[Rfam]
RNA: Bacterial large subunit ribosomal RNA, nucleotides 2648 to 2906
RNA sequence: GGAAGUUUGAGAAGAUCUGUCCCUAGUACGAGAGGACCGGGAUGGACACACCUCUGGUGCUCCAGUUGUCACGCCAGUGGCACAGCUGGGUAGCUAUGUGUGGAAAUGAUAAUCGCUGAAGGCAUCUAAGCGAGAAGCAUACUUCAAGAUGAGACUUCCCAUCCUUCGUGGAGUAAGACCCCUUGAAGACGACAAGGUUGAUAGGUUGGGUGUGUAAGCACGGUGACGUGUUCAGCUAACCAAUACUAAUAGGUCGAGG
Numbered sequence: 001g002g003a004a005g006u007u008u009g010a011g012a013a014g015a016u017c018u019g020u021c022c023c024u025a026g027u028a029c030g031a032g033a034g035g036a037c038c039g040g041g042a043u044g045g046a047c048a049c050a051c052c053u054c055u056g057g058u059g060c061u062c063c064a065g066u067u068g069u070c071a072c073g074c075c076a077g078u079g080g081c082a083c084a085g086c087u088g089g090g091u092a093g094c095u096a097u098g099u100g101u102g103g104a105a106a107u108g109a110u111a112a113u114c115g116c117u118g119a120a121g122g123c124a125u126c127u128a129a130g131c132g133a134g135a136a137g138c139a140u141a142c143u144u145c146a147a148g149a150u151g152a153g154a155c156u157u158c159c160c161a162u163c164c165u166u167c168g169u170g171g172a173g174u175a176a177g178a179c180c181c182c183u184u185g186a187a188g189a190c191g192a193c194a195a196g197g198u199u200g201a202u203a204g205g206u207u208g209g210g211u212g213u214g215u216a217a218g219c220a221c222g223g224u225g226a227c228g229u230g231u232u233c234a235g236c237u238a239a240c241c242a243a244u245a246c247u248a249a250u251a252g253g254u255c256g257a258g259g
Stems, first nucleotide, its partner, number of pairs: 001159008011145004017045007047102005055096003062089005067082006106140003113133005162172003174257001177255004181197005202248003205244005212236001218231005